[Rfam]
RNA sequence: AGCCCAGAUCCAGGGGCCAUAGUAGAAAUGCUCAUCUGAUGGCCCCGUCAGUUUCCUAUGAAGCAUUGAAUUCUGCU
Number, nucleotide and partner (000 for none) at each position: 001a000002g000003c000004c000005c000006a000007g000008a000009u000010c000011c000012a000013g046014g045015g044016g043017c042018c041019a000020u000021a077022g076023u075024a074025g073026a072027a071028a040029u039030g000031c000032u000033c000034a000035u000036c000037u000038g000039a029040u028041g018042g017043c016044c015045c014046c013047g000048u000049c000050a000051g064052u063053u062054u061055c060056c000057u000058a000059u000060g055061a054062a053063g052064c051065a000066u000067u000068g000069a000070a000071u027072u026073c025074u024075g023076c022077u021
Rfam assigns this 77-nucleotide RNA from Microcaecilia unicolor to the family "Mammalian CPEB3 ribozyme". The mammalian CPEB3 ribozyme is a self cleaving RNA located in the second intron of the CPEB3 gene which belongs to a family of genes regulating messenger RNA polyadenylation. This ribozyme is highly conserved and found only in mammals. The CPEB3 ribozyme is structurally and biochemically related to the human hepatitis delta virus (HDV) ribozyme and the HDV ribozyme is proposed to have arisen from the human transcriptome. There is currently only one other known self cleaving ribozyme in mammals, the CoTC motif. The family's consensus secondary structure is taken from published work.